[Rfam]
RNA sequence: GGUAUUCCUUAUCUGUGUCUAAUUACGUUGAAUUGUCUGGAGCCUAUCUCUCUGUACUCUGACUCAUUGCAAAACACAGAGAGACAGGCCCGUCGUUUAUACCUUUAUCGGUAUCUGC
Numbered sequence: 001g002g003u004a005u006u007c008c009u010u011a012u013c014u015g016u017g018u019c020u021a022a023u024u025a026c027g028u029u030g031a032a033u034u035g036u037c038u039g040g041a042g043c044c045u046a047u048c049u050c051u052c053u054g055u056a057c058u059c060u061g062a063c064u065c066a067u068u069g070c071a072a073a074a075c076a077c078a079g080a081g082a083g084a085c086a087g088g089c090c091c092g093u094c095g096u097u098u099a100u101a102c103c104u105u106u107a108u109c110g111g112u113a114u115c116u117g118c
Stems, first nucleotide, its partner, number of pairs: 001103004025096003040091001042089004047084002051080005058073001060071002

The family of this 118-nucleotide RNA from Candidatus Erwinia dacicola is "tp2".
By type it is a small RNA.
It scores 72 bits against the family's covariance model.